A member of the RNA family "U11 spliceosomal RNA" from Otus sunia, 127 nucleotides long.
The family's consensus secondary structure is taken from published work.
It is annotated as a spliceosomal small nuclear RNA.
The match comes from Rfam's covariance-model search (82 bits).

RNA sequence: AAAAAGGGUUUCUGCGGUGCGUGACACGGGGGUCCCGCGGCUGCUCCCGCGGAAUCGACAUCAAGAGAUUUCGGAAGCACAAUUUUUGUGAGCGGGGGUCGCUGGUAACCGCCGGUGCGGCGCCCUG
Numbered sequence: 001a002a003a004a005a006g007g008g009u010u011u012c013u014g015c016g017g018u019g020c021g022u023g024a025c026a027c028g029g030g031g032g033u034c035c036c037g038c039g040g041c042u043g044c045u046c047c048c049g050c051g052g053a054a055u056c057g058a059c060a061u062c063a064a065g066a067g068a069u070u071u072c073g074g075a076a077g078c079a080c081a082a083u084u085u086u087u088g089u090g091a092g093c094g095g096g097g098g099u100c101g102c103u104g105g106u107a108a109c110c111g112c113c114g115g116u117g118c119g120g121c122g123c124c125c126u127g
Stems, first nucleotide, its partner, number of pairs: 008078005013026002017022001027049007050073007096125004101121004108116003
On this family, see Schneider et al., Proc Natl Acad Sci U S A 2004: "Identification of an evolutionarily divergent U11 small nuclear ribonucleoprotein particle in Drosophila". Its Rfam clan is "U1 clan". The organism belongs to Otus, within Eukaryota.